[Rfam]
RNA sequence: CAAGUCCCACCCGGGCAAGGCUGGUCACCACCCGGAAGCGAGUCUUGGACUGUCCAGCGGCGACGUUGGCGGUUAAGCGUAGACAGCGAGUCAGUAGGCCGCGGUGAUAGAGCACCGAAAAGACCCUCUCUGUGGGUGCCGACGUCUUUAAGGCCGCGGAAGGCAACACCAGUAUCCCGAGCGGACCGGGGAUACUGGCCCACCGGUGUCGAAGAGCC
Numbered sequence: 001c002a003a004g005u006c007c008c009a010c011c012c013g014g015g016c017a018a019g020g021c022u023g024g025u026c027a028c029c030a031c032c033c034g035g036a037a038g039c040g041a042g043u044c045u046u047g048g049a050c051u052g053u054c055c056a057g058c059g060g061c062g063a064c065g066u067u068g069g070c071g072g073u074u075a076a077g078c079g080u081a082g083a084c085a086g087c088g089a090g091u092c093a094g095u096a097g098g099c100c101g102c103g104g105u106g107a108u109a110g111a112g113c114a115c116c117g118a119a120a121a122g123a124c125c126c127u128c129u130c131u132g133u134g135g136g137u138g139c140c141g142a143c144g145u146c147u148u149u150a151a152g153g154c155c156g157c158g159g160a161a162g163g164c165a166a167c168a169c170c171a172g173u174a175u176c177c178c179g180a181g182c183g184g185a186c187c188g189g190g191g192a193u194a195c196u197g198g199c200c201c202a203c204c205g206g207u208g209u210c211g212a213a214g215a216g217c218c
Stems, first nucleotide, its partner, number of pairs: 011035005019029002022188004038087002042084004046079002048074005054069006110210001112209006132203005138164003143158003169198010
The record is a 218-nucleotide RNA sequence from Microbulbifer rhizosphaerae, which matches "Group II catalytic intron D1-D4-6" in Rfam. The organism belongs to Microbulbifer, within Bacteria. The family has 174 seed sequences and 1,617 matches in Rfam 15.1. Its family is annotated with Group II intron splicing in the Gene Ontology.